MIR828 microRNA precursor family: a 130-nucleotide RNA sequence from Tripterygium wilfordii. The family has 16 seed sequences and 204 matches in Rfam 15.1. For this family Rfam cites "MicroRNA gene evolution in Arabidopsis lyrata and Arabidopsis thaliana" (Fahlgren et al., Plant Cell, 2010). Lineage of the source: Eukaryota > Embryophyta > Tracheophyta > Pentapetalae > Tripterygium.
RNA sequence: CUAGUAUUUCUUGCUCAAAUGAGUAUUCCAAACACAGCUUUUUCAUUCAAAAAUUAGUUUAAUUUCUUUCUGGGUAUGAAUAUUUGGUGGUGCUGUGAGCUGAGAUGCUCAUCUGAGCAAGCAAUGUUUG
Numbered sequence: 001c002u003a004g005u006a007u008u009u010c011u012u013g014c015u016c017a018a019a020u021g022a023g024u025a026u027u028c029c030a031a032a033c034a035c036a037g038c039u040u041u042u043u044c045a046u047u048c049a050a051a052a053a054u055u056a057g058u059u060u061a062a063u064u065u066c067u068u069u070c071u072g073g074g075u076a077u078g079a080a081u082a083u084u085u086g087g088u089g090g091u092g093c094u095g096u097g098a099g100c101u102g103a104g105a106u107g108c109u110c111a112u113c114u115g116a117g118c119a120a121g122c123a124a125u126g127u128u129u130g
Stems, first nucleotide, its partner, number of pairs: 004127005010121008019112009029102002
Dot-bracket structure: ...(((((.((((((((.(((((((((.((......................................................................)).))))))))).)))))))).)))))...